Shown here is a 77-nucleotide sequence from Clupea harengus, a member of the family "mir-182 microRNA precursor family". The literature on the family includes a 2009 paper in Mol Reprod Dev by Tesfaye et al., "Identification and expression profiling of microRNAs during bovine oocyte maturation using heterologous approach". Clan: mir-182 clan. Gene Ontology terms of the family: RISC complex and miRNA-mediated post-transcriptional gene silencing.
RNA sequence: CACAGUGUUUGGCAAUGGUAGAACUCACACUGGUGGGCUUGAUAGAUCCGGUGGUUCUAGACUUGCCAACAACUGUU
Numbered sequence: 001c002a003c004a005g006u007g008u009u010u011g012g013c014a015a016u017g018g019u020a021g022a023a024c025u026c027a028c029a030c031u032g033g034u035g036g037g038c039u040u041g042a043u044a045g046a047u048c049c050g051g052u053g054g055u056u057c058u059a060g061a062c063u064u065g066c067c068a069a070c071a072a073c074u075g076u077u
Stems, first nucleotide, its partner, number of pairs: 002076005009069007019059006028053006
Lineage of the source: Eukaryota > Craniata > Actinopteri > Clupeinae > Clupea.